The family of this 128-nucleotide sequence from Rattus norvegicus is "Small nucleolar RNA SNORA40". Lineage of the source: Eukaryota > Chordata > Amniota > Boreoeutheria > Rattus. The match comes from Rfam's covariance-model search (76 bits). Its family is annotated with nucleolus and RNA processing in the Gene Ontology.
[Rfam]
RNA sequence: UAUAGUUUUUUUUUCUUUUGUUCAACUGGUAGACAAAGGCAUGAAAGACAGGUGCAAAAAUAAAUCAUCUUUUGCAACUAACAACUCACUGUACAGUAUGAGUUUUGAUACAUGUAAGAAGAAGUAUA
Dot-bracket structure: (.((.((.(.(..((((((((...........))))))).)....).).)).)).).......((..(.(((((......(.((((((..........)))))).)........))))).)..))...
Pairs were carried over by alignment from the consensus structure, which was predicted with RNAalifold.